[Rfam]
RNA sequence: CAGUUUCGCCAGGGUCCUCCUCCCAUAUCCUGGUGAUUAAAGACCGGACCCCCGUCCUCCCAAUCCGGUCUUACCGAUAGACCCCCAUUGCCCCUCCCGCGAUGGGGGUUUUAU
Numbered sequence: 001c002a003g004u005u006u007c008g009c010c011a012g013g014g015u016c017c018u019c020c021u022c023c024c025a026u027a028u029c030c031u032g033g034u035g036a037u038u039a040a041a042g043a044c045c046g047g048a049c050c051c052c053c054g055u056c057c058u059c060c061c062a063a064u065c066c067g068g069u070c071u072u073a074c075c076g077a078u079a080g081a082c083c084c085c086c087a088u089u090g091c092c093c094c095u096c097c098c099g100c101g102a103u104g105g106g107g108g109u110u111u112u113a114u
Base pairs, nucleotide, nucleotide: 007035008034009033010032011031012030013029014028015027040072041071042070043069044068045067046066047065048064081109082108083107084106085105086104087103088102089101090100091099
RNA: Alphaproteobacterial ar14
Organism: Falsochrobactrum ovis